[Rfam]
This 98-nucleotide RNA from Gemmobacter aquaticus belongs to the Rfam family "TPP riboswitch aptamer (THI element)". NCBI's taxonomy places the organism under Bacteria, Pseudomonadati, Pseudomonadota, Paracoccaceae, Gemmobacter. A search with the family's covariance model found it, with a score of 63 bits. The family's consensus secondary structure is taken from published work.

RNA sequence: GCUGCCACCUCGGGGUGCCUAAGGGCUGAGACGCGUGAUGCGGACCCGUUGAACCUGAACCGGUUAGGACCGGCGGAGGGAAGGUUCCGGCAAAACGC
Numbered sequence: 001g002c003u004g005c006c007a008c009c010u011c012g013g014g015g016u017g018c019c020u021a022a023g024g025g026c027u028g029a030g031a032c033g034c035g036u037g038a039u040g041c042g043g044a045c046c047c048g049u050u051g052a053a054c055c056u057g058a059a060c061c062g063g064u065u066a067g068g069a070c071c072g073g074c075g076g077a078g079g080g081a082a083g084g085u086u087c088c089g090g091c092a093a094a095a096c097g098c
Stems, first nucleotide, its partner, number of pairs: 007085004011048004016042001017026003033041003054079003060073004